The record is a 70-nucleotide RNA sequence from Muraenolepis orangiensis, which matches "Selenocysteine insertion sequence 1" in Rfam. The family's RNA type in Rfam is cis-regulatory element. The organism belongs to Muraenolepis, within Eukaryota. It scores 36 bits against the family's covariance model.
RNA sequence: UUCAGUAGUUUAUGAAGGCCUCGUCUGAAAACCAUCUUUUGGCUGGACAAGGCCUGAUGUCAUUGCUGAA
Numbered sequence: 001u002u003c004a005g006u007a008g009u010u011u012a013u014g015a016a017g018g019c020c021u022c023g024u025c026u027g028a029a030a031a032c033c034a035u036c037u038u039u040u041g042g043c044u045g046g047a048c049a050a051g052g053c054c055u056g057a058u059g060u061c062a063u064u065g066c067u068g069a070a
Stems, first nucleotide, its partner, number of pairs: 001070005017054005023048004032042003